[Rfam]
RNA sequence: UGUCGGGGACGACCCCGACCAUUUUUCCAAGCCGAUUUUUGGGGACGACCCCG
Numbered sequence: 001u002g003u004c005g006g007g008g009a010c011g012a013c014c015c016c017g018a019c020c021a022u023u024u025u026u027c028c029a030a031g032c033c034g035a036u037u038u039u040u041g042g043g044g045a046c047g048a049c050c051c052c053g
Base pairs, nucleotide, nucleotide: 002019003018004017005016006015007014008013040053041052042051043050044049
Guanidine-II riboswitch aptamer (mini-ykkC): a 53-nucleotide RNA from Desulfovibrio sp. An276. The family's consensus secondary structure is taken from published work. The source organism's lineage runs through Bacteria, Pseudomonadati, Desulfovibrionales, Desulfovibrionaceae and Desulfovibrio. Rfam's curators write: Simpler in structure and has fewer highly conserved nucleotide positions than the ykkC-yxkD leader. Despite this each of its two stem-loop structures directly bind free guanidine. Therefore, mini-ykkC RNA motif represents a distinct class of guanidine-sensing RNAs. Its crystal structure was also determined. It scores 39 bits against the family's covariance model.